A member of the RNA family "Bacillaceae-1 RNA" from Ureibacillus manganicus, 67 nucleotides long.
The organism belongs to Ureibacillus manganicus, within Bacteria.
The family's consensus secondary structure is taken from published work.
By type it is a small RNA.
The match comes from Rfam's covariance-model search (67 bits).
[Rfam]
RNA sequence: AAUAAUUGAACUCAGACUAAGAGCGCCACGUCCUGUGGCAACGUCUGAGUGACCAACAUCCUGCUCC
Numbered sequence: 001a002a003u004a005a006u007u008g009a010a011c012u013c014a015g016a017c018u019a020a021g022a023g024c025g026c027c028a029c030g031u032c033c034u035g036u037g038g039c040a041a042c043g044u045c046u047g048a049g050u051g052a053c054c055a056a057c058a059u060c061c062u063g064c065u066c067c
Stems, first nucleotide, its partner, number of pairs: 011049007025039005055065001057063001